Record summary
Mnt IRES: a 203-nucleotide sequence from Oryctolagus cuniculus. Rfam's curators put it in the seed alignment. The literature on the family includes a 2001 paper in Oncogene by Stoneley et al., "An internal ribosome entry segment in the 5' untranslated region of the mnt gene". Gene Ontology term of the family: ribosome binding. Pairs were carried over by alignment from the consensus structure, which was predicted with PFOLD. It is annotated as an internal ribosome entry site.
[Rfam]
RNA sequence: UUCUAUUUUGCAAAUAUUUUGGGAGACAUUGAUUUUUCCACCCGUGCUCCCCGGUUCUCGCUCGCGGAGUGCGCCGCGCCGCCCAGCCCUGUCGCCCCCCGGAGGUGAGCCCUCGCUCCCGCCUGCCCGCCAGCCUGACCGGUGCCUGGCUCGCGGGCCGCAGCCUCGGCCCCGGCGCGCCCCCGGCCGCUCUCGGCGCGAUG
Numbered sequence: 001u002u003c004u005a006u007u008u009u010g011c012a013a014a015u016a017u018u019u020u021g022g023g024a025g026a027c028a029u030u031g032a033u034u035u036u037u038c039c040a041c042c043c044g045u046g047c048u049c050c051c052c053g054g055u056u057c058u059c060g061c062u063c064g065c066g067g068a069g070u071g072c073g074c075c076g077c078g079c080c081g082c083c084c085a086g087c088c089c090u091g092u093c094g095c096c097c098c099c100c101g102g103a104g105g106u107g108a109g110c111c112c113u114c115g116c117u118c119c120c121g122c123c124u125g126c127c128c129g130c131c132a133g134c135c136u137g138a139c140c141g142g143u144g145c146c147u148g149g150c151u152c153g154c155g156g157g158c159c160g161c162a163g164c165c166u167c168g169g170c171c172c173c174g175g176c177g178c179g180c181c182c183c184c185g186g187c188c189g190c191u192c193u194c195g196g197c198g199c200g201a202u203g
Stems, first nucleotide, its partner, number of pairs: 025038002043073008076178006102114004125158006132151004